[Rfam]
RNA sequence: UAAAUUGAGAGUUUGAUCCUGGCUCAGGACGAACGCUGGCGGCGUGCCUAACACAUGCAAGUCGAGCGGAGAAUGCGGAUAUGUUUACAUAGAAGCGUUCUUAGCGGCGGACGGGUGAGUAACACGUGGGUAACCUGCCUCAAAGUGGGGGAUAGCCUUCCGAAAGGAAGAUUAAUACCGCAUAAGCCUACAGUGCCGCAUGGCACCGUAGGAAAAGGAGCAAUCCGCUUUGAGAUGGACCCGCGGCGCAUUAGCUAGUUGGUGAGGUAACGGCUCACCAAGGCGACGAUGCGUAGCCGACCUGAGAGGGUGAUCGGCCACAUUGGAACUGAGACACGGUCCAGACUCCUACGGGAGGCAGCAGUGGGGAAUAUUGCACAAUGGGCGAAAGCCUGAUGCAGCAACGCCGCGUGAGUGAUGAAGGCCUUCGGGUCGUAAAGCUCUUUGAUCAGGGAUGAUAAUGACAGUACCUGAAAAACAAGCCACGGCUAACUACGUGCCAGCAGCCGCGGUAAUACGUAGGUGGCGAGCGUUGUCCGGAAUUACUG
Numbered sequence: 001u002a003a004a005u006u007g008a009g010a011g012u013u014u015g016a017u018c019c020u021g022g023c024u025c026a027g028g029a030c031g032a033a034c035g036c037u038g039g040c041g042g043c044g045u046g047c048c049u050a051a052c053a054c055a056u057g058c059a060a061g062u063c064g065a066g067c068g069g070a071g072a073a074u075g076c077g078g079a080u081a082u083g084u085u086u087a088c089a090u091a092g093a094a095g096c097g098u099u100c101u102u103a104g105c106g107g108c109g110g111a112c113g114g115g116u117g118a119g120u121a122a123c124a125c126g127u128g129g130g131u132a133a134c135c136u137g138c139c140u141c142a143a144a145g146u147g148g149g150g151g152a153u154a155g156c157c158u159u160c161c162g163a164a165a166g167g168a169a170g171a172u173u174a175a176u177a178c179c180g181c182a183u184a185a186g187c188c189u190a191c192a193g194u195g196c197c198g199c200a201u202g203g204c205a206c207c208g209u210a211g212g213a214a215a216a217g218g219a220g221c222a223a224u225c226c227g228c229u230u231u232g233a234g235a236u237g238g239a240c241c242c243g244c245g246g247c248g249c250a251u252u253a254g255c256u257a258g259u260u261g262g263u264g265a266g267g268u269a270a271c272g273g274c275u276c277a278c279c280a281a282g283g284c285g286a287c288g289a290u291g292c293g294u295a296g297c298c299g300a301c302c303u304g305a306g307a308g309g310g311u312g313a314u315c316g317g318c319c320a321c322a323u324u325g326g327a328a329c330u331g332a333g334a335c336a337c338g339g340u341c342c343a344g345a346c347u348c349c350u351a352c353g354g355g356a357g358g359c360a361g362c363a364g365u366g367g368g369g370a371a372u373a374u375u376g377c378a379c380a381a382u383g384g385g386c387g388a389a390a391g392c393c394u395g396a397u398g399c400a401g402c403a404a405c406g407c408c409g410c411g412u413g414a415g416u417g418a419u420g421a422a423g424g425c426c427u428u429c430g431g432g433u434c435g436u437a438a439a440g441c442u443c444u445u446u447g448a449u450c451a452g453g454g455a456u457g458a459u460a461a462u463g464a465c466a467g468u469a470c471c472u473g474a475a476a477a478a479c480a481a482g483c484c485a486c487g488g489c490u491a492a493c494u495a496c497g498u499g500c501c502a503g504c505a506g507c508c509g510c511g512g513u514a515a516u517a518c519g520u521a522g523g524u525g526g527c528g529a530g531c532g533u534u535g536u537c538c539g540g541a542a543u544u545a546c547u548g
Stems, first nucleotide, its partner, number of pairs: 009025005027538004032534006039410006045403002047368001052366003056363003061108003066105002070101002073090003077086003115321003125245007134238002139234007147181001149179002155172001157170005187212005193206001195204003217226003247293003254284003259281008296318004300311004323344005346357004374400001376399003382395005413443004423434004447479001449474005457465001482527005493522005503510002
About this RNA
Shown here is a 548-nucleotide part of an RNA from Proteiniclasticum ruminis, a member of the family "Bacterial small subunit ribosomal RNA". The family's consensus secondary structure is taken from published work. It scores 1618 bits against the family's covariance model.